[Rfam]
RNA sequence: UUAAAAACAAUGCCGAAUUUCCUAUUGGAAAACGGGGGAUCCAUACUCGGGUGAAUUGAUCUCGGAUGACAGGGAUCAUAGGGGAACCUUCUACCAAACCCUCCAGCUAACCUCGUAGGCACCGGAAGGAGCAAUA
Numbered sequence: 001u002u003a004a005a006a007a008c009a010a011u012g013c014c015g016a017a018u019u020u021c022c023u024a025u026u027g028g029a030a031a032a033c034g035g036g037g038g039a040u041c042c043a044u045a046c047u048c049g050g051g052u053g054a055a056u057u058g059a060u061c062u063c064g065g066a067u068g069a070c071a072g073g074g075a076u077c078a079u080a081g082g083g084g085a086a087c088c089u090u091c092u093a094c095c096a097a098a099c100c101c102u103c104c105a106g107c108u109a110a111c112c113u114c115g116u117a118g119g120c121a122c123c124g125g126a127a128g129g130a131g132c133a134a135u136a
Base pairs, nucleotide, nucleotide: 011121012120013119014118018031019030020029032116033115034114035113036112037111043047049101050100051099057078058077059076060075061074062073063072081095082094084092